[Rfam]
RNA sequence: AAUCUAGUAGGCAGGUGCUCACUCGUCCUUCUCCACGGUUAAAAAUACAGGGAGGAGGCCAGAAUGGCAACUAUCACUAUGAUU
Dot-bracket structure: ((((..(..((.((.(((.((.(.(.((((((((..(..(....)..)..)))))))).)..).))))).)).))..)..))))

Rfam assigns this 84-nucleotide RNA sequence from Bos taurus to the family "mir-764 microRNA precursor family". Taxonomically the source falls in Bos (Eukaryota, Amniota, Ruminantia, Bovidae). Rfam links the family to the GO terms miRNA-mediated post-transcriptional gene silencing and RISC complex. Rfam 15.1 lists 118 matches to the family in 117 species.